[Rfam]
RNA sequence: CUCUUAUUAAGAGUGAGUGGAGGGAUUUGGCCCUUAGAAACUCCAGCAACAGCUAAAAUGCGAUGUGCUAAUUCCAACAGUAUUUAAUACUGAAAGAUGAGAA
Numbered sequence: 001c002u003c004u005u006a007u008u009a010a011g012a013g014u015g016a017g018u019g020g021a022g023g024g025a026u027u028u029g030g031c032c033c034u035u036a037g038a039a040a041c042u043c044c045a046g047c048a049a050c051a052g053c054u055a056a057a058a059u060g061c062g063a064u065g066u067g068c069u070a071a072u073u074c075c076a077a078c079a080g081u082a083u084u085u086a087a088u089a090c091u092g093a094a095a096g097a098u099g100a101g102a103a
Stems, first nucleotide, its partner, number of pairs: 002102007013044001015043004022033003027077004045069004050065002052061002073095001078092006
Record summary: The record is a 103-nucleotide RNA sequence from Staphylococcus sp. HGB0015, which matches "SAM riboswitch aptamer (S box leader)" in Rfam. The base pairs follow the family's consensus structure, which is taken from published work.